[Rfam]
Shown here is a 143-nucleotide RNA sequence from Rhodococcus sp. P1Y, a member of the family "mraW RNA".

RNA sequence: ACAGCCGAGUGCCGCGAGGCCUCUGCCCGAUCAGAACCCUGACGUUCUUCCCCAACGCCAGGUUUCGAAGAUCAGGACCCUGACGUUCUUCCCCAACGCCAGGUUCCUAUCGGACAGGGACCUCGAGGCAUUCGCCACCACCA
Numbered sequence: 001a002c003a004g005c006c007g008a009g010u011g012c013c014g015c016g017a018g019g020c021c022u023c024u025g026c027c028c029g030a031u032c033a034g035a036a037c038c039c040u041g042a043c044g045u046u047c048u049u050c051c052c053c054a055a056c057g058c059c060a061g062g063u064u065u066c067g068a069a070g071a072u073c074a075g076g077a078c079c080c081u082g083a084c085g086u087u088c089u090u091c092c093c094c095a096a097c098g099c100c101a102g103g104u105u106c107c108u109a110u111c112g113g114a115c116a117g118g119g120a121c122c123u124c125g126a127g128g129c130a131u132u133c134g135c136c137a138c139c140a141c142c143a
Stems, first nucleotide, its partner, number of pairs: 010130004015125002018122002021119005027113005034106001036105001038103004043098003